Shown here is a 172-nucleotide sequence from Halobacteroides halobius, a member of the family "Group II catalytic intron D1-D4-3". The match comes from Rfam's covariance-model search (33 bits). Group II introns are found in rRNA, tRNA and mRNA of organelles in fungi, plants and protists, and also in mRNA in bacteria. The literature on the family includes a 2001 paper in Trends Genet by Bonen and Vogel, "The ins and outs of group II introns". The pairing is the family consensus, mapped onto this sequence.
RNA sequence: UUCAUCGUGAGAUGUAAUCUGAAGAGUUUGAGGCGAAAAAUCAGUCCGGAACAAUAUGUGAACUGAAGGUGGCAUUCAUUAGUGACGAUCUACCAAAAGGAUGGAGAAGUCCAAAGCUGACUUACAGACCAUUGGAGUAUGUUAGAUUAAUGAGUGUGAUUAUGGUCGGAAU
Numbered sequence: 001u002u003c004a005u006c007g008u009g010a011g012a013u014g015u016a017a018u019c020u021g022a023a024g025a026g027u028u029u030g031a032g033g034c035g036a037a038a039a040a041u042c043a044g045u046c047c048g049g050a051a052c053a054a055u056a057u058g059u060g061a062a063c064u065g066a067a068g069g070u071g072g073c074a075u076u077c078a079u080u081a082g083u084g085a086c087g088a089u090c091u092a093c094c095a096a097a098a099g100g101a102u103g104g105a106g107a108a109g110u111c112c113a114a115a116g117c118u119g120a121c122u123u124a125c126a127g128a129c130c131a132u133u134g135g136a137g138u139a140u141g142u143u144a145g146a147u148u149a150a151u152g153a154g155u156g157u158g159a160u161u162a163u164g165g166u167c168g169g170a171a172u
Stems, first nucleotide, its partner, number of pairs: 001016001003014004028171002033166002039161005044155002047152002059149003063145001069142003075136004080131001084111003089105004